Rfam assigns this 172-nucleotide RNA sequence from Oryza sativa to the family "MIR2118 microRNA precursor family". A reference for the family is Xue et al. (2009), "Characterization and expression profiles of miRNAs in rice seeds", Nucleic Acids Res. It scores 138 bits against the family's covariance model.
[Rfam]
RNA sequence: GCCAGGAAGAGGAAGAAAGAGGUAAUCUAAGAGCAGUGGGAGUGGGAACAUGGUGGAAAAAUGAGAUAUCAGUUUUCACUUCUAGAAUUGGAGGUGGAUAUAUUUGUCUCACUAUUUUCCGAUGCCUCCCAUUCCUAUCGUUCUUAGGUGCUCCUUCCUCUUCCUUUCAGCU
Number, nucleotide and partner (000 for none) at each position: 001g000002c000003c000004a000005g000006g000007a000008a000009g163010a162011g161012g160013a159014a000015g157016a156017a155018a000019g000020a000021g153022g152023u000024a000025a000026u148027c147028u146029a145030a144031g143032a142033g141034c140035a000036g000037u137038g136039g135040g134041a133042g132043u131044g130045g129046g128047a127048a000049c124050a123051u122052g000053g120054u000055g119056g118057a117058a116059a115060a113061a000062u000063g000064a000065g000066a000067u000068a000069u000070c000071a000072g000073u000074u000075u000076u000077c000078a000079c000080u000081u000082c000083u000084a000085g000086a000087a000088u000089u000090g000091g000092a000093g000094g000095u000096g000097g000098a000099u000100a000101u000102a000103u000104u000105u000106g000107u000108c000109u000110c000111a000112c000113u060114a000115u059116u058117u057118u056119c055120c053121g000122a051123u050124g049125c000126c000127u047128c046129c045130c044131a043132u042133u041134c040135c039136u038137a037138u000139c000140g034141u033142u032143c031144u030145u029146a028147g027148g026149u000150g000151c000152u022153c021154c000155u017156u016157c015158c000159u013160c012161u011162u010163c009164c000165u000166u000167u000168c000169a000170g000171c000172u000